Lysine riboswitch aptamer: a 169-nucleotide sequence from Firmicutes bacterium CAG:129. It scores 79 bits against the family's covariance model.
RNA sequence: AGUCUUGAUAGAGGCGCGGCCAACAUCAGUAGCUCUGCAUGACCGGCAGGAACCGGAGAGCGAAAGGGGCGGCCGCCGAGGGGACACACGGAUUCCUGUGCGUGCGUUCACCGGGCCGGGGGAUAACAUCCGUCGGACUGUCGCCGAAAGGCGGAGAGCUGUCAUGAUC
Numbered sequence: 001a002g003u004c005u006u007g008a009u010a011g012a013g014g015c016g017c018g019g020c021c022a023a024c025a026u027c028a029g030u031a032g033c034u035c036u037g038c039a040u041g042a043c044c045g046g047c048a049g050g051a052a053c054c055g056g057a058g059a060g061c062g063a064a065a066g067g068g069g070c071g072g073c074c075g076c077c078g079a080g081g082g083g084a085c086a087c088a089c090g091g092a093u094u095c096c097u098g099u100g101c102g103u104g105c106g107u108u109c110a111c112c113g114g115g116c117c118g119g120g121g122g123a124u125a126a127c128a129u130c131c132g133u134c135g136g137a138c139u140g141u142c143g144c145c146g147a148a149a150g151g152c153g154g155a156g157a158g159c160u161g162u163c164a165u166g167a168u169c
Stems, first nucleotide, its partner, number of pairs: 006164006016076006024068001032061005038055001080112002082109004087104004113139002116136004121131003141154005